[Rfam]
Nucleotides: 179
Base pairs, nucleotide, nucleotide: 006174007173008172009171010170011169016081017080018079019078020077021076022075024073030066031065032064033063034062035061036060037059085115086114087113088112089111090110091109092108093107094106116143117142118141119140120139121138145164146163147162148161149160150159151158
Number, partner (000 for none) and nucleotide at each position: 001000u002000u003000a004000u005000g006174c007173a008172g009171a010170a011169g012000a013000g014000g015000a016081g017080c018079a019078c020077u021076g022075c023000c024073c025000a026000g027000g028000c029000a030066g031065g032064u033063g034062u035061u036060u037059c038000g039000u040000g041000g042000a043000g044000c045000c046000g047000c048000a049000a050000c051000u052000c053000c054000g055000a056000u057000a058000c059037g060036a061035a062034a063033u064032a065031c066030u067000c068000a069000g070000g071000g072000g073024g074000a075022g076021c077020a078019g079018u080017g081016c082000c083000g084000a085115g086114g087113u088112a089111g090110a091109u092108c093107a094106a095000g096000g097000u098000u099000g100000c101000u102000g103000g104000a105000a106094u107093u108092g109091a110090u111089c112088u113087g114086u115085c116143g117142g118141u119140u120139g121138a122000c123000u124000u125000g126000g127000g128000u129000u130000g131000a132000g133000u134000c135000c136000c137000a138121u139120c140119a141118a142117c143116u144000g145164u146163c147162a148161u149160c150159a151158g152000c153000a154000c155000c156000g157000u158151c159150u160149g161148a162147u163146g164145a165000a166000g167000a168000g169011c170010u171009u172008c173007u174006g175000a176000g177000g178000g179000a

Lysine riboswitch aptamer: a 179-nucleotide sequence from Vibrio navarrensis.